[Rfam]
Nucleotides: 082
Stems, first nucleotide, its partner, number of pairs: 001082002005077001007075004013069007022060009
Number, partner (000 for none) and nucleotide at each position: 001082u002081g003000u004000u005077g006000c007075c008074u009073g010072a011000c012000a013069c014068u015067c016066u017065u018064u019063c020000c021000c022060u023059g024058u025057u026056g027055c028054a029053c030052u031000a032000c033000u034000g035000u036000g037000g038000g039000a040000g041000c042000u043000g044000c045000a046000g047000c048000u049000a050000g051000c052030a053029g054028u055027g056026c057025a058024a059023u060022a061000a062000u063019g064018a065017a066016a067015g068014g069013g070000c071000a072010u073009c074008a075007g076000u077005u078000c079000a080000c081002u082001g

A member of the RNA family "mir-130 microRNA precursor family" from Anabarilius grahami, 82 nucleotides long. For this family Rfam cites "Embryonic stem cell-specific MicroRNAs" (Houbaviy et al., Dev Cell, 2003). NCBI's taxonomy places the organism under Eukaryota, Bilateria, Gnathostomata, Ostariophysi, Anabarilius. Rfam links the family to the GO terms RISC complex and miRNA-mediated post-transcriptional gene silencing.